[Rfam]
RNA sequence: GAAAUCUGAUCGGGAGAACCGGCUAUGCCGGUGCCGAAGGAGCAACCGCCCCGGAAACUCUCAGGCAAAAGGGACCGAUUGGAUUGA
Dot-bracket structure: .....((((((((.....((((.....)))).(((((..(((...((.....))...))))).)))........)))))))).....
RNA: Glycine riboswitch aptamer